About this RNA:
A member of the RNA family "Small nucleolar RNA SNORD66" from Sphenodon punctatus, 69 nucleotides long. Lineage of the source: Eukaryota > Chordata > Teleostomi > Dipnotetrapodomorpha > Sphenodon. The base pairs follow the family's consensus structure, which was predicted with RNAalifold. Its family is annotated with RNA processing and nucleolus in the Gene Ontology. About the family: snoRNA HBII-142 is part of the C/D family of snoRNAs. It is the human orthologue of the mouse MBII-142 snoRNA and is predicted to guide 2'O-ribose methylation of small 18S rRNA at residue C1272.
[Rfam]
RNA sequence: CCCCAUGAAUUCUCCUUUGUGCCAUUGUGUCUGGGUCAUUGAUGCUCUGGGAUGGGUCUGGGGGGGGGG
Numbered sequence: 001c002c003c004c005a006u007g008a009a010u011u012c013u014c015c016u017u018u019g020u021g022c023c024a025u026u027g028u029g030u031c032u033g034g035g036u037c038a039u040u041g042a043u044g045c046u047c048u049g050g051g052a053u054g055g056g057u058c059u060g061g062g063g064g065g066g067g068g069g
Stems, first nucleotide, its partner, number of pairs: 001069004

The family has 20 seed sequences and 1,346 matches in Rfam 15.1.